[Rfam]
RNA sequence: AUUUACCUAGAAUCGUCCAUUCGUAUAUCCUUGGCAAUAAGGGCCGGGGGUCUCUACCAGGAACCGUGAAUUCCUGACUACGAAGGAUGUGGAUAACCAC
Dot-bracket structure: .................(.((((((...(((((((.......)))))))........((((((.......))))))..)))))).)..............
Numbered sequence: 001a002u003u004u005a006c007c008u009a010g011a012a013u014c015g016u017c018c019a020u021u022c023g024u025a026u027a028u029c030c031u032u033g034g035c036a037a038u039a040a041g042g043g044c045c046g047g048g049g050g051u052c053u054c055u056a057c058c059a060g061g062a063a064c065c066g067u068g069a070a071u072u073c074c075u076g077a078c079u080a081c082g083a084a085g086g087a088u089g090u091g092g093a094u095a096a097c098c099a100c
Stems, first nucleotide, its partner, number of pairs: 018086001020084006029049007058076006